[Rfam]
Source information: The record is a 107-nucleotide sequence from Sinocyclocheilus grahami, which matches "Vault RNA" in Rfam.
RNA sequence: ACGUUGGUUUAGCUCAGUGGUUACUUCCGAUUGUUAUUAAAUCACUCUCAGGGCCGCCGGGAAGCCGGUGACCGUGGAUCGAACCUCGGGCUCUGUCCAACGUUUUC
Numbered sequence: 001a002c003g004u005u006g007g008u009u010u011a012g013c014u015c016a017g018u019g020g021u022u023a024c025u026u027c028c029g030a031u032u033g034u035u036a037u038u039a040a041a042u043c044a045c046u047c048u049c050a051g052g053g054c055c056g057c058c059g060g061g062a063a064g065c066c067g068g069u070g071a072c073c074g075u076g077g078a079u080c081g082a083a084c085c086u087c088g089g090g091c092u093c094u095g096u097c098c099a100a101c102g103u104u105u106u107c
Base pairs, nucleotide, nucleotide: 002102003101004100005099006098007097012091013090014089015088017087019085020084025083026082027081029079
The match comes from Rfam's covariance-model search (54 bits).